[Rfam]
RNA sequence: UCAUCGGCGCUCUCUAAUUCGCUUGGUGCAGGUCGGGAACUGUUUCGCUUUUUGUUCAUCAUGAUCUCUUGAUUGUUGUUCUCUCUUUCAAUUUCCUCUGCGUUGUUCAGGGGAAAUAUAUAUAUAUGUGUGUGUGUGUGUAAUCGAGCGAAUUGGAUCCCGCCUUGCAUCAACUGAAUCCGAGACAGCGAUGAAG
Dot-bracket structure: ............((..((((..((((((((((.(((((.((.................................................................................................................)).))))).))))))))))..))))..)).............
Notes: This 196-nucleotide sequence from Cucumis sativus belongs to the Rfam family "MIR168 microRNA precursor family". The base pairs follow the family's consensus structure, which was predicted with WAR. A search with the family's covariance model found it, with a score of 98 bits.